Rfam assigns this 256-nucleotide part of an RNA from Candidatus Cenarchaeum symbiosum to the family "Archaeal large subunit ribosomal RNA". Its Rfam clan is "LSU clan". Pairs were carried over by alignment from the consensus structure, which is taken from published work. Taxonomically the source falls in Candidatus Cenarchaeum (Archaea, Thermoproteati, Nitrososphaerota, Candidatus Cenarchaeales). The sequence is in the family's curated seed alignment.

RNA sequence: GAGCUUGCUGUCAUGGCGAGGUUAAGCCUAGAAAGGCGUAGCCGAAGGGAAACCGAAUUCUCGCAGCAUUGUGAGGAGAAGCGUGUGAAAGUGCGUUGAGUCAUGGCGGUAAGGCUAGAAGCCAGUCGAUCUAUUCCUGAGCAAGAUGAAGGUGGGCGAAAGCCCACUGGAGGUCUGCAGCAGUUCUGACGUGCAACUCGUUUGUGUGACUUGGGAAUAGGGGUCAAAAACCAAUCUAGACUGGCGCUUGCUAGUU
Numbered sequence: 001g002a003g004c005u006u007g008c009u010g011u012c013a014u015g016g017c018g019a020g021g022u023u024a025a026g027c028c029u030a031g032a033a034a035g036g037c038g039u040a041g042c043c044g045a046a047g048g049g050a051a052a053c054c055g056a057a058u059u060c061u062c063g064c065a066g067c068a069u070u071g072u073g074a075g076g077a078g079a080a081g082c083g084u085g086u087g088a089a090a091g092u093g094c095g096u097u098g099a100g101u102c103a104u105g106g107c108g109g110u111a112a113g114g115c116u117a118g119a120a121g122c123c124a125g126u127c128g129a130u131c132u133a134u135u136c137c138u139g140a141g142c143a144a145g146a147u148g149a150a151g152g153u154g155g156g157c158g159a160a161a162g163c164c165c166a167c168u169g170g171a172g173g174u175c176u177g178c179a180g181c182a183g184u185u186c187u188g189a190c191g192u193g194c195a196a197c198u199c200g201u202u203u204g205u206g207u208g209a210c211u212u213g214g215g216a217a218u219a220g221g222g223g224u225c226a227a228a229a230a231c232c233a234a235u236c237u238a239g240a241c242u243g244g245c246g247c248u249u250g251c252u253a254g255u256u
Base pairs, nucleotide, nucleotide: 005112006111007110008109009108010107011106012105013104014103015102016101017100020043021042022041023040026037027036028035029034047054048053059079060078061077062076066072067071082095083094084093085092115254116253118251122244123243124242125241126240127239131220132219133218134217135216136215137214138213139212140211141210142208144176145175146174147173151168152167153166154165155164156163157162180205181204182203183202186200188199189198222232223231224230